[Rfam]
RNA sequence: UCCCGCUUUUCCUCCCUGAGCGGGGCCUUUGCGUGUGACAGCAAAAAAGGCUUACCAGCCCGGUGGCUUAUGCCCCGGGCAUUUUUUU
Numbered sequence: 001u002c003c004c005g006c007u008u009u010u011c012c013u014c015c016c017u018g019a020g021c022g023g024g025g026c027c028u029u030u031g032c033g034u035g036u037g038a039c040a041g042c043a044a045a046a047a048a049g050g051c052u053u054a055c056c057a058g059c060c061c062g063g064u065g066g067c068u069u070a071u072g073c074c075c076c077g078g079g080c081a082u083u084u085u086u087u088u
Base pairs, nucleotide, nucleotide: 002024003023004022005021006020007019025051026050027049028048029047030046058080059079060078061077062076063075065073
Shown here is an 88-nucleotide sequence from Polaromonas sp. Pch-P, a member of the family "Burkholderia RNA 7 (anti-hemB)". Rfam describes the family as follows. This RNA motif was identified by computational search in b-proteobacteria Burkholderia. Co-purified with Hfq, expression confirmed by Northern blot. By type it is a small RNA. Rfam 15.1 lists 479 matches to the family in 458 species. Rfam links the family to the GO terms protein binding and bacterial biofilm matrix. The family's consensus secondary structure is taken from published work. NCBI's taxonomy places the organism under Bacteria, Pseudomonadati, Pseudomonadota, Burkholderiales, Polaromonas.